[Rfam]
Rfam assigns this 79-nucleotide RNA from Pseudomonas fluorescens to the family "Proteo-phage-1 RNA". It is annotated as a small RNA. The base pairs follow the family's consensus structure, which is taken from published work. It is one of the family's seed sequences.
RNA sequence: CUGCAGUCAGGGCAGCCUCACGGAAGGCCUGGACGCUGAUAAGCCGGUAGUGCAGCGCUACGGGAAAACACCGGCAGCC
Dot-bracket structure: [[[[..(((((]]]]((....))....))))).(((((....[[[[[.....))))).............]]]]]....